The family of this 74-nucleotide RNA sequence from Acidipropionibacterium virtanenii is "tRNA". Its family is annotated with triplet codon-amino acid adaptor activity in the Gene Ontology. NCBI's taxonomy places the organism under Bacteria, Actinomycetota, Actinomycetes, Propionibacteriaceae, Acidipropionibacterium. The match comes from Rfam's covariance-model search (62 bits). The family's consensus secondary structure is taken from published work.
RNA sequence: GGCCGGGUAGCUCAGUUGGUAGCAGCGUUCGCCUGAAAAGUGAAAGGUCACCGGUUCGACCCCGGUCCCGGCCA
Numbered sequence: 001g002g003c004c005g006g007g008u009a010g011c012u013c014a015g016u017u018g019g020u021a022g023c024a025g026c027g028u029u030c031g032c033c034u035g036a037a038a039a040g041u042g043a044a045a046g047g048u049c050a051c052c053g054g055u056u057c058g059a060c061c062c063c064g065g066u067c068c069c070g071g072c073c074a
Stems, first nucleotide, its partner, number of pairs: 001073007010026003028044005050066005